[Rfam]
Nucleotides: 096
Stems, first nucleotide, its partner, number of pairs: 003093002006090005012085002014082005021076006029068004035062004039057002041052001043050002
Number, partner (000 for none) and nucleotide at each position: 001000g002000u003093g004092c005000u006090g007089c008088a009087g010086g011000u012085g013084u014082u015081g016080g017079a018078g019000a020000g021076c022075a023074g024073u025072g026071u027000g028000u029068g030067u031066u032065g033000c034000c035062u036061g037060g038059g039057g040056a041052c042000u043050g044049u045000g046000u047000g048000g049044a050043c051000u052041g053000g054000u055000a056040u057039c058000a059038c060037c061036c062035a063000g064000a065032c066031a067030g068029c069000u070000u071026g072025c073024a074023c075022u076021g077000a078018c079017u080016c081015c082014a083000g084013a085012c086010c087009c088008u089007g090006c091000c092004g093003u094000c095000a096000u
A member of the RNA family "mir-2278 microRNA precursor family" from Homo sapiens, 96 nucleotides long. Its family is annotated with RISC complex and miRNA-mediated post-transcriptional gene silencing in the Gene Ontology. The family's consensus secondary structure was predicted with RNAalifold.